[Rfam]
Nucleotides: 161
Stems, first nucleotide, its partner, number of pairs: 028056005034044003122146010
Number, partner (000 for none) and nucleotide at each position: 001000a002000g003000a004000c005000u006000u007000c008000g009000a010000a011000u012000a013000c014000g015000c016000a017000u018000a019000c020000c021000g022000u023000a024000g025000a026000c027000a028056g029055u030054a031053g032052g033000u034044g035043c036042c037000c038000a039000a040000g041000a042036g043035g044034c045000u046000u047000a048000a049000u050000u051000u052032c053031c054030u055029a056028c057000c058000g059000a060000g061000g062000u063000g064000u065000u066000a067000u068000g069000a070000u071000a072000c073000a074000g075000u076000g077000u078000u079000u080000g081000a082000c083000u084000u085000u086000c087000g088000c089000a090000c091000u092000u093000u094000u095000g096000a097000a098000g099000u100000g101000u102000u103000g104000a105000u106000c107000g108000g109000a110000u111000c112000a113000g114000a115000c116000c117000a118000u119000c120000a121000u122146g123145g124144c125143c126142u127141u128140c129139g130138c131137a132000u133000u134000g135000u136000c137131u138130g139129c140128g141127a142126a143125g144124g145123c146122c147000u148000u149000u150000c151000u152000c153000a154000u155000g156000c157000a158000u159000c160000a161000c